[Rfam]
RNA sequence: GGCGUACCCAAGGGGUGGCGUUAGCCUGAGAUGCUGCAUUGGCAGUAAACCCUGGAACCUGAUCCGGUUAAUACCGGCGUAGGAAUGGGGUGCGGCGUGGCC
Numbered sequence: 001g002g003c004g005u006a007c008c009c010a011a012g013g014g015g016u017g018g019c020g021u022u023a024g025c026c027u028g029a030g031a032u033g034c035u036g037c038a039u040u041g042g043c044a045g046u047a048a049a050c051c052c053u054g055g056a057a058c059c060u061g062a063u064c065c066g067g068u069u070a071a072u073a074c075c076g077g078c079g080u081a082g083g084a085a086u087g088g089g090g091u092g093c094g095g096c097g098u099g100g101c102c
Stems, first nucleotide, its partner, number of pairs: 007089004011053004016047001017026003033046005058083004064077004
RNA: TPP riboswitch aptamer (THI element)